[Rfam]
RNA sequence: UAAAGAGAUAGAGGCAGCGGUGCGUCAGAGUAGGACAGGGAGGAGACAUCCGAUGAAAUGUCUAAAAGGUAAUCAUCGCCGAAAGAGCUUGGUGGUAAUCAGGUCUCUUGGGGAUCAAGGAAAUACUUUGGUCACUCCUUCGCAAGAAGAGGCGUUAUCUGCAGG
Numbered sequence: 001u002a003a004a005g006a007g008a009u010a011g012a013g014g015c016a017g018c019g020g021u022g023c024g025u026c027a028g029a030g031u032a033g034g035a036c037a038g039g040g041a042g043g044a045g046a047c048a049u050c051c052g053a054u055g056a057a058a059u060g061u062c063u064a065a066a067a068g069g070u071a072a073u074c075a076u077c078g079c080c081g082a083a084a085g086a087g088c089u090u091g092g093u094g095g096u097a098a099u100c101a102g103g104u105c106u107c108u109u110g111g112g113g114a115u116c117a118a119g120g121a122a123a124u125a126c127u128u129u130g131g132u133c134a135c136u137c138c139u140u141c142g143c144a145a146g147a148a149g150a151g152g153c154g155u156u157a158u159c160u161g162c163a164g165g
Base pairs, nucleotide, nucleotide: 006160007159008158009157010156011155017079018078019077020076021075022074025071033063034062035061036060037059083109084108085107086106087105088103089102090101091100092099093098110136111135113133114132115131116130117129118128119127120126138149139148140147141146
Dot-bracket structure: .....((((((.....((((((..(.......(((((.....................))))).......)..))))))...(((((((((((....)))))).)))))((.((((((((.....)))))))).)).((((....)))).....)))))).....

Rfam assigns this 165-nucleotide sequence from Kandleria vitulina to the family "Lysine riboswitch aptamer".
The literature on the family includes a 2003 paper in Cell by Mandal et al., "Riboswitches Control Fundamental Biochemical Pathways in Bacillus subtilis and Other Bacteria".